[Rfam]
RNA sequence: ACAGACUCACUUUGCACCUGGCUGCAGCCUCAUGGGGGUGCUUUUUCCAUGUGCCAGGGAAACAUUCUGGGGUGUUGUGGCUGCCUGACCUAUCAAGGGUGAUGCAGCUGUCUGGGGAUACAGGA
Number, nucleotide and partner (000 for none) at each position: 001a000002c053003a052004g000005a050006c000007u000008c000009a000010c000011u000012u000013u000014g041015c040016a039017c038018c037019u036020g000021g000022c000023u032024g031025c000026a000027g000028c000029c000030u000031c024032a023033u000034g000035g000036g019037g018038g017039u016040g015041c014042u000043u000044u000045u000046u000047c000048c000049a000050u005051g000052u003053g002054c000055c000056a000057g000058g000059g000060a000061a000062a000063c000064a000065u000066u116067c115068u114069g113070g112071g111072g000073u000074g108075u107076u106077g105078u104079g103080g000081c000082u101083g100084c099085c098086u097087g000088a000089c000090c000091u000092a000093u000094c000095a000096a000097g086098g085099g084100u083101g082102a000103u079104g078105c077106a076107g075108c074109u000110g000111u071112c070113u069114g068115g067116g066117g000118a000119u000120a000121c000122a000123g000124g000125a000

Small nucleolar RNA SNORA77: a 125-nucleotide sequence from Pan troglodytes. It scores 82 bits against the family's covariance model. Lineage of the source: Eukaryota > Euteleostomi > Mammalia > Primates > Pan. ACA63 (SNORA77) is a member of the H/ACA class of snoRNAs that guide the sites of modification of uridines to pseudouridines.